A member of the RNA family "Glycine riboswitch aptamer" from Paracoccus homiensis, 64 nucleotides long. The source organism's lineage runs through Bacteria, Pseudomonadati, Pseudomonadota, Rhodobacterales and Paracoccus.

RNA sequence: CUCUGGAGAGAGGCCGAAAGGCCCGCCGAAGGGAUAACGAUCUCAGGCGUCCGCAAGGACAGGG
Dot-bracket structure: (((((......((((....)))).(((((..((.......)))).)))...........)))))